[Rfam]
RNA sequence: GGACCUGAUAUCAGGCAAGAUUACCCGCUGAACUUAAGCAUAUUAAUAAGCGGAGGAAAAGAAACUAACAAGGAUUCCCCUAGUAACGGCGAGUGAAGCGGGAAGAGCUCAAGCUUAAAAUCUCCGUGCAAGUUUUGCGCGGCGAAUUGUAGUCUAUAGAGGCGUGAUCAGUGUGGGCGCUUGGGGCAAGUUCCUUGGAAGAGGACAGCAUGGAGGGUGAUACUCCCGUUCAUCCCUGAGUUGCUCGUGCGUACGAUCCGUUUUCUUUGAGUCGCGUUGUUUGGGAAUGCAGCGCAAAGUAGGUGGUAAAUUCCAUCUAAAGCUAAAUAUUGGUGCGAGACCGAUAGCGAACAAGUACCGUGAGGGAAAGAUGAAAAGAACUUUGAAAAGAGAGUUAAAGAGUACCUGAAACUGCUGAAAGGGAAC
Number, nucleotide and partner (000 for none) at each position: 001g000002g000003a000004c000005c000006u000007g000008a000009u000010a000011u000012c000013a000014g000015g000016c000017a000018a000019g000020a000021u000022u000023a000024c055025c053026c052027g051028c050029u049030g000031a000032a000033c000034u000035u042036a041037a000038g000039c000040a000041u036042a035043u000044u000045a000046a000047u000048a000049a029050g028051c027052g026053g025054a000055g024056g000057a000058a000059a000060a000061g000062a000063a000064a000065c072066u071067a000068a000069c000070a000071a066072g065073g000074a000075u000076u103077c102078c101079c100080c000081u000082a000083g000084u000085a000086a094087c093088g000089g000090c000091g000092a000093g087094u086095g000096a000097a000098g000099c000100g079101g078102g077103a076104a000105g000106a324107g323108c322109u321110c000111a000112a000113g153114c152115u151116u000117a000118a148119a147120a000121u145122c144123u000124c142125c141126g140127u139128g138129c137130a000131a000132g000133u000134u000135u000136u000137g129138c128139g127140c126141g125142g124143c000144g122145a121146a000147u119148u118149g000150u000151a115152g114153u113154c000155u000156a000157u000158a000159g265160a264161g262162g261163c260164g259165u000166g258167a257168u256169c255170a000171g000172u249173g248174u247175g246176g245177g244178c243179g000180c240181u239182u238183g237184g236185g235186g234187c000188a000189a000190g206191u000192u205193c204194c203195u202196u000197g000198g000199a000200a000201g000202a195203g194204g193205a192206c190207a000208g000209c213210a000211u000212g000213g209214a000215g000216g226217g225218u000219g000220a000221u000222a000223c000224u000225c217226c216227c000228g000229u000230u000231c000232a000233u000234c186235c185236c184237u183238g182239a181240g180241u000242u000243g178244c177245u176246c175247g174248u173249g172250c000251g000252u000253a000254c000255g169256a168257u167258c166259c164260g163261u162262u161263u000264u160265c159266u000267u000268u000269g000270a000271g000272u000273c000274g295275c294276g293277u292278u291279g290280u289281u000282u000283g000284g000285g000286a000287a000288u000289g280290c279291a278292g277293c276294g275295c274296a000297a000298a000299g000300u000301a318302g317303g316304u315305g314306g000307u000308a000309a000310a000311u000312u000313c000314c305315a304316u303317c302318u301319a000320a000321a109322g108323c107324u106325a000326a000327a000328u000329a000330u000331u000332g000333g000334u000335g000336c000337g000338a000339g000340a000341c000342c000343g000344a000345u000346a000347g000348c000349g000350a000351a000352c000353a000354a000355g000356u000357a000358c365359c364360g000361u000362g000363a000364g359365g358366g000367a000368a000369a000370g000371a000372u000373g000374a000375a000376a000377a000378g000379a000380a000381c392382u391383u390384u389385g000386a000387a000388a000389a384390g383391a382392g381393a000394g000395u000396u000397a000398a000399a000400g000401a000402g000403u000404a000405c000406c000407u000408g000409a000410a000411a000412c000413u000414g000415c000416u000417g000418a000419a000420a000421g000422g000423g000424a000425a000426c000
RNA: Eukaryotic large subunit ribosomal RNA, nucleotides 1 to 426